[Rfam]
RNA sequence: AGUCACAAAUAUUGUGGGGGGGCAUUGAAAGGUAUCCUUGCCACCCGACAUUUGUGGUGGA
Numbered sequence: 001a002g003u004c005a006c007a008a009a010u011a012u013u014g015u016g017g018g019g020g021g022g023c024a025u026u027g028a029a030a031g032g033u034a035u036c037c038u039u040g041c042c043a044c045c046c047g048a049c050a051u052u053u054g055u056g057g058u059g060g061a
Base pairs, nucleotide, nucleotide: 002058003057004056005055006054007053008052009051010050012048013047014046018045019044021042022041023040024039027035